[Rfam]
RNA sequence: GAAAUUCCUCGUUAGGAAGAGGCGUUAGCACAAACAGAAGCUACUGCCCAGAAACGUCGAAAGACGCCAAUGCGGUAGACCAGAUUCAGUCGGAUUAAGGCUUUAUCUAAGGUAGCUGGUGGUGGUUCACCUACGUUGUGCUCUGCUAAAACUCAAACCAGGGGAAAAUG
Numbered sequence: 001g002a003a004a005u006u007c008c009u010c011g012u013u014a015g016g017a018a019g020a021g022g023c024g025u026u027a028g029c030a031c032a033a034a035c036a037g038a039a040g041c042u043a044c045u046g047c048c049c050a051g052a053a054a055c056g057u058c059g060a061a062a063g064a065c066g067c068c069a070a071u072g073c074g075g076u077a078g079a080c081c082a083g084a085u086u087c088a089g090u091c092g093g094a095u096u097a098a099g100g101c102u103u104u105a106u107c108u109a110a111g112g113u114a115g116c117u118g119g120u121g122g123u124g125g126u127u128c129a130c131c132u133a134c135g136u137u138g139u140g141c142u143c144u145g146c147u148a149a150a151a152c153u154c155a156a157a158c159c160a161g162g163g164g165a166a167a168a169u170g
Stems, first nucleotide, its partner, number of pairs: 005166006011158002013098001015153002021147003027142007040116005046076003049072002055066004083107003089101003118131003
RNA: M-box riboswitch aptamer (ykoK leader)